[Rfam]
RNA sequence: GCGUUGGCGGGAGCCUCUGACACGCGGCCCACAUUCUGGCCGCCGGGACCGCGCCGAGCCACUGGCGAGACCGACCCGCUGAGGC
Numbered sequence: 001g002c003g004u005u006g007g008c009g010g011g012a013g014c015c016u017c018u019g020a021c022a023c024g025c026g027g028c029c030c031a032c033a034u035u036c037u038g039g040c041c042g043c044c045g046g047g048a049c050c051g052c053g054c055c056g057a058g059c060c061a062c063u064g065g066c067g068a069g070a071c072c073g074a075c076c077c078g079c080u081g082a083g084g085c
Stems, first nucleotide, its partner, number of pairs: 001085002004082008013060001015058001023053005029047001038072002041067004
Shown here is an 85-nucleotide sequence, a member of the family "c-di-GMP-II-GAG riboswitch aptamer". Gene Ontology terms of the family: regulation of gene expression and cyclic-di-GMP binding. It is one of the family's seed sequences.